[Rfam]
RNA sequence: CGAUGGGGCAAUAAAAUCCGCACAUAUAUCGACACAUUUCUCUGGGUGCCCAAUAGGGUGGAGAAUGCGGAUAUAUGGAGGCCUAAC
Numbered sequence: 001c002g003a004u005g006g007g008g009c010a011a012u013a014a015a016a017u018c019c020g021c022a023c024a025u026a027u028a029u030c031g032a033c034a035c036a037u038u039u040c041u042c043u044g045g046g047u048g049c050c051c052a053a054u055a056g057g058g059u060g061g062a063g064a065a066u067g068c069g070g071a072u073a074u075a076u077g078g079a080g081g082c083c084u085a086a087c
Stems, first nucleotide, its partner, number of pairs: 023077008035067003039064005048059004